[Rfam]
RNA sequence: UUGGGUGGCUGAAUUAGAGAUCGGCGCCUUGUUUUUUUUAUUUAUAAUGUUCUGGAGUUUACUAUGUCUCUAAGCGUUGAAGCUAAAGCUAAAAUCGUUUCGGAAUUCGGUCGUGAUACU
Numbered sequence: 001u002u003g004g005g006u007g008g009c010u011g012a013a014u015u016a017g018a019g020a021u022c023g024g025c026g027c028c029u030u031g032u033u034u035u036u037u038u039u040a041u042u043u044a045u046a047a048u049g050u051u052c053u054g055g056a057g058u059u060u061a062c063u064a065u066g067u068c069u070c071u072a073a074g075c076g077u078u079g080a081a082g083c084u085a086a087a088g089c090u091a092a093a094a095u096c097g098u099u100u101c102g103g104a105a106u107u108c109g110g111u112c113g114u115g116a117u118a119c120u
Base pairs, nucleotide, nucleotide: 008025009024010023011022012021051074053072054071055070056069057068
RNA: Ribosomal S15 leader
Organism: Prodigiosinella confusarubida